[Rfam]
RNA sequence: AUGGUGGAAUCCGAAAAACCAUAAAAGAGUAGGAA
Numbered sequence: 001a002u003g004g005u006g007g008a009a010u011c012c013g014a015a016a017a018a019c020c021a022u023a024a025a026a027g028a029g030u031a032g033g034a035a
Base pairs, nucleotide, nucleotide: 002021003020004019005018010034011033012032

A member of the RNA family "DUF805b RNA", 35 nucleotides long. The family's consensus secondary structure is taken from published work. It is annotated as a cis-regulatory element.